[Rfam]
RNA sequence: CUCUUAUCGAGAGAGGUGGAGGGACUGGCCCGAUGAAGCCCGGCAACCGGCCAUGAUUGAUAUGGUAAAGGUGCCAAUUCCUGCAGGAUCUGUAUUCCUGACAGAUGAGAG
Numbered sequence: 001c002u003c004u005u006a007u008c009g010a011g012a013g014a015g016g017u018g019g020a021g022g023g024a025c026u027g028g029c030c031c032g033a034u035g036a037a038g039c040c041c042g043g044c045a046a047c048c049g050g051c052c053a054u055g056a057u058u059g060a061u062a063u064g065g066u067a068a069a070g071g072u073g074c075c076a077a078u079u080c081c082u083g084c085a086g087g088a089u090c091u092g093u094a095u096u097c098c099u100g101a102c103a104g105a106u107g108a109g110a111g
Stems, first nucleotide, its partner, number of pairs: 001111008013041001015040003021031003025083001027081002042075004047071002050066005079103001084100005